[Rfam]
RNA sequence: UGUUCUGAUGAGGCACCUAUUUUGGGUACAACCCAAGUAUUGACCUGCCCCGUAAUAAUGUUAUGUAUAUCGUGCAUUACUGCUAGCCAACAUGAAUAUUAUAUA
Numbered sequence: 001u002g003u004u005c006u007g008a009u010g011a012g013g014c015a016c017c018u019a020u021u022u023u024g025g026g027u028a029c030a031a032c033c034c035a036a037g038u039a040u041u042g043a044c045c046u047g048c049c050c051c052g053u054a055a056u057a058a059u060g061u062u063a064u065g066u067a068u069a070u071c072g073u074g075c076a077u078u079a080c081u082g083c084u085a086g087c088c089a090a091c092a093u094g095a096a097u098a099u100u101a102u103a104u105a
Stems, first nucleotide, its partner, number of pairs: 006095001008093003012088002017082001022036006037059002040055003063077005
The family of this 105-nucleotide RNA sequence from Mandrillus leucophaeus is "Mitochondrial DNA control region secondary structure A". On this family, see Pereira et al., Mol Biol Evol 2008: "Evidence for variable selective pressures at a large secondary structure of the human mitochondrial DNA control region". The family's RNA type in Rfam is antisense RNA. NCBI's taxonomy places the organism under Eukaryota, Deuterostomia, Craniata, Boreoeutheria, Mandrillus. It scores 80 bits against the family's covariance model.